A member of the RNA family "Histone 3' UTR stem-loop" from Mastacembelus armatus, 45 nucleotides long. A search with the family's covariance model found it, with a score of 35 bits. It is annotated as a cis-regulatory element. Rfam links the family to the GO term mRNA 3'-end processing by stem-loop binding and cleavage.
[Rfam]
RNA sequence: CCAAAGGCUCUUUUAAGAGCCACUCACUCAGCUGAGAACAGUUUC
Numbered sequence: 001c002c003a004a005a006g007g008c009u010c011u012u013u014u015a016a017g018a019g020c021c022a023c024u025c026a027c028u029c030a031g032c033u034g035a036g037a038a039c040a041g042u043u044u045c
Base pairs, nucleotide, nucleotide: 006021007020008019009018010017011016